[Rfam]
RNA: U1 spliceosomal RNA
RNA sequence: AUACUUACCUGGCUAGGAGGUUAACCGUGAUCAUCAAGGCGGUUCCUCAAGGGCGAGGGCCUUCCAUUGCACUCCGGUAGGCUUGACCUCUUCCAUUAUCCCAAAUGUGGAUAACUGGAUAGCAUCAUUUCUGGUAGUGGGGAUCUGCGUGCGCGCUCAUCCCCU
Numbered sequence: 001a002u003a004c005u006u007a008c009c010u011g012g013c014u015a016g017g018a019g020g021u022u023a024a025c026c027g028u029g030a031u032c033a034u035c036a037a038g039g040c041g042g043u044u045c046c047u048c049a050a051g052g053g054c055g056a057g058g059g060c061c062u063u064c065c066a067u068u069g070c071a072c073u074c075c076g077g078u079a080g081g082c083u084u085g086a087c088c089u090c091u092u093c094c095a096u097u098a099u100c101c102c103a104a105a106u107g108u109g110g111a112u113a114a115c116u117g118g119a120u121a122g123c124a125u126c127a128u129u130u131c132u133g134g135u136a137g138u139g140g141g142g143a144u145c146u147g148c149g150u151g152c153g154c155g156c157u158c159a160u161c162c163c164c165u
Stems, first nucleotide, its partner, number of pairs: 012123004017048004024043005050091004055087001057084003061080002064077002093118003096114003100110002139164006147156003
Dot-bracket structure: ...........((((.((((...(((((..........))))).)))).((((.(.(((.((.((..........)).)).)))..))))).((((((.((.......)).))).))).))))...............((((((..(((....)))..)))))).